About this RNA:
This 85-nucleotide sequence from Jaculus jaculus belongs to the Rfam family "mir-350 microRNA precursor family". The source organism's lineage runs through Eukaryota, Metazoa, Vertebrata, Teleostomi and Jaculus. Rfam 15.1 lists 121 matches to the family in 118 species. A search with the family's covariance model found it, with a score of 72 bits.
RNA sequence: GCCUACCAGAGUAAAGUGUGUGCACUUUGGGACAGUGAGGAAAGUAAUGUUCACAAAGCCCCUACGCUUUCACCCUUAAGGAGAG
Number, nucleotide and partner (000 for none) at each position: 001g000002c081003c080004u079005a000006c000007c000008a076009g075010a000011g073012u072013a070014a069015a068016g067017u066018g065019u000020g000021u000022g000023c000024a000025c058026u057027u056028u055029g054030g052031g051032a050033c049034a048035g000036u000037g000038a000039g000040g000041a000042a000043a000044g000045u000046a000047a000048u034049g033050u032051u031052c030053a000054c029055a028056a027057a026058g025059c000060c000061c000062c000063u000064a000065c018066g017067c016068u015069u014070u013071c000072a012073c011074c000075c009076u008077u000078a000079a004080g003081g002082a000083g000084a000085g000